U11 spliceosomal RNA: a 142-nucleotide RNA sequence from Globisporangium ultimum. The family's RNA type in Rfam is spliceosomal small nuclear RNA.
[Rfam]
Nucleotides: 142
Base pairs, nucleotide, nucleotide: 008086009085010084011083012082013026015024016023017022027057029055030053031052034051035050036049037048038047039046040045058081059080060079061078062077063076064075104141105140106139107138108137112136113135114134115133
Number, partner (000 for none) and nucleotide at each position: 001000a002000a003000a004000a005000a006000g007000g008086g009085u010084a011083g012082g013026c014000c015024c016023c017022u018000a019000a020000u021000a022017a023016g024015g025000c026013g027057c028000u029055c030053g031052a032000u033000c034051g035050a036049g037048g038047g039046a040045a041000a042000u043000g044000u045040u046039u047038c048037c049036c050035u051034c052031u053030c054000g055029g056000u057027g058081g059080u060079g061078a062077a063076u064075c065000g066000c067000g068000a069000u070000c071000a072000c073000g074000a075064g076063a077062u078061u079060u080059g081058c082012c083011c084010u085009a086008c087000a088000u089000a090000a091000u092000u093000u094000c095000u096000c097000c098000c099000c100000c101000g102000c103000u104141g105140g106139u107138g108137g109000c110000g111000c112136g113135a114134a115133u116000g117000g118000g119000g120000c121000c122000g123000c124000a125000a126000g127000g128000g129000c130000c131000c132000a133115a134114u135113u136112c137108c138107c139106a140105c141104c142000a
Gene Ontology terms of the family: pre-mRNA 5'-splice site binding, U11 snRNP and mRNA 5'-splice site recognition. A search with the family's covariance model found it, with a score of 57 bits. The family is grouped with related families in Rfam's "U1 clan". Taxonomically the source falls in Globisporangium ultimum (Eukaryota, Stramenopiles, Peronosporomycetes, Globisporangium).